[Rfam]
RNA sequence: AGAGUAGGCGCAGGUGGUUGCAGAUUCAAACACUGGGGAUUUGGAAUACCCGAUACUUGGUGUGGAAUCUGAGGAAAGUCCGGGCUCCCGAAAGACCAGACUUGCUGGAUAACGUCCAGUGCGCGUGAGCGUGAGGAUAGUGCCACAGAAAGAUACCGCCUUUUUUCAGUUUACUGAAGAGGGUAAGGGUGCAAAGGUGCGGUAAGAGCGCACCAGCAACAUCGAGAGGUGUUGGCUCGGUAAACCCCGGUUGGGUGCAAGGUAAAGGAACGACGGUUGGUCUUUUACCGGUUCCGCAAAAGAGAGCCGCUAGAGGCAACUGGUAACAGUUGUCCCAGAUAGAUAACCGCCCUUUUGUGAAGAUGUUGAUAUAACAUUUUUACAGAUGAACAGAACCCGGCUUAUGUCCGACUCUUUCC
Numbered sequence: 001a002g003a004g005u006a007g008g009c010g011c012a013g014g015u016g017g018u019u020g021c022a023g024a025u026u027c028a029a030a031c032a033c034u035g036g037g038g039a040u041u042u043g044g045a046a047u048a049c050c051c052g053a054u055a056c057u058u059g060g061u062g063u064g065g066a067a068u069c070u071g072a073g074g075a076a077a078g079u080c081c082g083g084g085c086u087c088c089c090g091a092a093a094g095a096c097c098a099g100a101c102u103u104g105c106u107g108g109a110u111a112a113c114g115u116c117c118a119g120u121g122c123g124c125g126u127g128a129g130c131g132u133g134a135g136g137a138u139a140g141u142g143c144c145a146c147a148g149a150a151a152g153a154u155a156c157c158g159c160c161u162u163u164u165u166u167c168a169g170u171u172u173a174c175u176g177a178a179g180a181g182g183g184u185a186a187g188g189g190u191g192c193a194a195a196g197g198u199g200c201g202g203u204a205a206g207a208g209c210g211c212a213c214c215a216g217c218a219a220c221a222u223c224g225a226g227a228g229g230u231g232u233u234g235g236c237u238c239g240g241u242a243a244a245c246c247c248c249g250g251u252u253g254g255g256u257g258c259a260a261g262g263u264a265a266a267g268g269a270a271c272g273a274c275g276g277u278u279g280g281u282c283u284u285u286u287a288c289c290g291g292u293u294c295c296g297c298a299a300a301a302g303a304g305a306g307c308c309g310c311u312a313g314a315g316g317c318a319a320c321u322g323g324u325a326a327c328a329g330u331u332g333u334c335c336c337a338g339a340u341a342g343a344u345a346a347c348c349g350c351c352c353u354u355u356u357g358u359g360a361a362g363a364u365g366u367u368g369a370u371a372u373a374a375c376a377u378u379u380u381u382a383c384a385g386a387u388g389a390a391c392a393g394a395a396c397c398c399g400g401c402u403u404a405u406g407u408c409c410g411a412c413u414c415u416u417u418c419c
Base pairs, nucleotide, nucleotide: 001415002414003413004412005411007409008408010407011406012405013351014350015349016348017347018346019345021071022070023069024068025067026066027065029063076403077402078401080400081399082398083397084396085257087255088254094284095283099252100251101250103249104248105119106118107117108116109115120134121132122131123130124129135247136246140245141244142241143240144239156188157187158184159183160182161181162180163179164178165177166176196214197213198212199211200210201209216236217234218233219232220231221230222229223228261308262307263306272294275289276288277287279285315334316333317332318331319330320329321328322327

The family of this 419-nucleotide RNA sequence from Calothrix sp. 336/3 is "Bacterial RNase P class A". Lineage of the source: Bacteria > Cyanobacteriota > Nostocales > Calotrichaceae > Calothrix. From the family's description: Ribonuclease P (RNase P) is a ubiquitous endoribonuclease, found in archaea, bacteria and eukarya as well as chloroplasts and mitochondria. The family's RNA type in Rfam is ribozyme.